This 82-nucleotide RNA sequence from Caenorhabditis briggsae belongs to the Rfam family "mir-90 microRNA precursor family".
Rfam's curators put it in the seed alignment.
[Rfam]
RNA sequence: CAUUUCAAGCGGCCUUCAACGACUAUAUCAACCGAAUCCAAAUUCGCGAGUUGAUAUGUUGUUUUGAAUGUCACUUGAGGUU
Numbered sequence: 001c002a003u004u005u006c007a008a009g010c011g012g013c014c015u016u017c018a019a020c021g022a023c024u025a026u027a028u029c030a031a032c033c034g035a036a037u038c039c040a041a042a043u044u045c046g047c048g049a050g051u052u053g054a055u056a057u058g059u060u061g062u063u064u065u066g067a068a069u070g071u072c073a074c075u076u077g078a079g080g081u082u
Base pairs, nucleotide, nucleotide: 004079005078006077007076008075009074011072012071013070015068016067017066018063019062020061021060022059023058025057026056027055028054029053030052031051032050033048034047
Source information
Its family is annotated with miRNA-mediated post-transcriptional gene silencing and RISC complex in the Gene Ontology.